[Rfam]
A member of the RNA family "Bradyrhizobiaceae sRNA BjrC80" from Tardiphaga sp., 159 nucleotides long. On this family, see Madhugiri et al., RNA Biol 2012: "Small RNAs of the Bradyrhizobium/Rhodopseudomonas lineage and their analysis". The pairing is the family consensus, mapped onto this sequence. Rfam classes the family as a small RNA.
RNA sequence: UCACGGAGAGCGUCGAACGCAUUGUCGCCCCCGCCGACGGCGCUCUCCCGGGAGCGAGCCACAAGCUCGCUCCCUCAGUCACCUUCCGGGGGACCAAACCCCAUCUUCCGGAAGGCACAGUGGGCGGUGAAGUUUCCCCCAGCUUCACCGCCUAUUUCC
Numbered sequence: 001u002c003a004c005g006g007a008g009a010g011c012g013u014c015g016a017a018c019g020c021a022u023u024g025u026c027g028c029c030c031c032c033g034c035c036g037a038c039g040g041c042g043c044u045c046u047c048c049c050g051g052g053a054g055c056g057a058g059c060c061a062c063a064a065g066c067u068c069g070c071u072c073c074c075u076c077a078g079u080c081a082c083c084u085u086c087c088g089g090g091g092g093a094c095c096a097a098a099c100c101c102c103a104u105c106u107u108c109c110g111g112a113a114g115g116c117a118c119a120g121u122g123g124g125c126g127g128u129g130a131a132g133u134u135u136c137c138c139c140c141a142g143c144u145u146c147a148c149c150g151c152c153u154a155u156u157u158c159c
Stems, first nucleotide, its partner, number of pairs: 009044007019034002050074009060065001076120001079119001082115002086111004091106003122153012